mir-5045 microRNA precursor family: a 53-nucleotide RNA from Terebratulina retusa.
The base pairs follow the family's consensus structure, which was predicted with RNAalifold.
It is one of the family's seed sequences.
Gene Ontology terms of the family: miRNA-mediated post-transcriptional gene silencing and RISC complex.
RNA sequence: GGUCUAAAGGAUUGUCUCUAGACUAAAGUCUCUCUAGAGAUAGUCUUUUAGUC
Numbered sequence: 001g002g003u004c005u006a007a008a009g010g011a012u013u014g015u016c017u018c019u020a021g022a023c024u025a026a027a028g029u030c031u032c033u034c035u036a037g038a039g040a041u042a043g044u045c046u047u048u049u050a051g052u053c
Stems, first nucleotide, its partner, number of pairs: 004051019